[Rfam]
RNA: FMN riboswitch aptamer (RFN element)
Nucleotides: 130
Base pairs, nucleotide, nucleotide: 002129003128004127005126006125007124008121015027016026017025029110030109031099032098033046034045035044036043041097042096050074051073079095080094081093082092083091101113102112103111
Number, partner (000 for none) and nucleotide at each position: 001000a002129c003128g004127u005126g006125c007124u008121c009000c010000g011000g012000g013000g014000u015027c016026g017025g018000u019000g020000a021000a022000a023000u024000u025017c026016c027015g028000a029110g030109c031099c032098g033046g034045c035044g036043g037000u038000a039000u040000a041097g042096c043036c044035c045034g046033c047000g048000a049000c050074c051073c052000g053000c054000g055000c056000c057000u058000c059000c060000c061000u062000c063000c064000g065000u066000g067000g068000c069000g070000g071000c072000c073051g074050g075000u076000u077000g078000a079095c080094c081093u082092g083091g084000u085000g086000g087000a088000a089000c090000u091083c092082c093081a094080g095079g096042g097041c098032c099031g100000a101113c102112g103111g104000u105000c106000a107000a108000a109030g110029u111103c112102c113101g114000g115000a116000u117000g118000g119000g120000a121008g122000g123000c124007a125006g126005c127004a128003c129002g130000g